Shown here is a 189-nucleotide RNA sequence from Pinus taeda, a member of the family "MIR946 microRNA precursor family". The source organism's lineage runs through Eukaryota, Embryophyta, Pinopsida, Pinales and Pinus subgen. Pinus.

RNA sequence: CAGAGUGUAUGGAUGUGGAUAUGGAAGGGUUAGUAAACAGUACAAAACCCAUUUAAUAGAGAUUCCAUCGGAGCAUCAUUGUUGGCUGUUAGAUCAAGCAACUGUAUUUUGAUGGCCACACUCAUUGAAUGGGUUGCUUGUUUUGCUUUUAACCAGCCCUUUUUCUAUCCAACUGCCUGUAUUUUGAUG
Numbered sequence: 001c002a003g004a005g006u007g008u009a010u011g012g013a014u015g016u017g018g019a020u021a022u023g024g025a026a027g028g029g030u031u032a033g034u035a036a037a038c039a040g041u042a043c044a045a046a047a048c049c050c051a052u053u054u055a056a057u058a059g060a061g062a063u064u065c066c067a068u069c070g071g072a073g074c075a076u077c078a079u080u081g082u083u084g085g086c087u088g089u090u091a092g093a094u095c096a097a098g099c100a101a102c103u104g105u106a107u108u109u110u111g112a113u114g115g116c117c118a119c120a121c122u123c124a125u126u127g128a129a130u131g132g133g134u135u136g137c138u139u140g141u142u143u144u145g146c147u148u149u150u151a152a153c154c155a156g157c158c159c160u161u162u163u164u165c166u167a168u169c170c171a172a173c174u175g176c177c178u179g180u181a182u183u184u185u186g187a188u189g
Stems, first nucleotide, its partner, number of pairs: 007182006014175002016171006023163009033153002039147004044142002046135010066114006079101005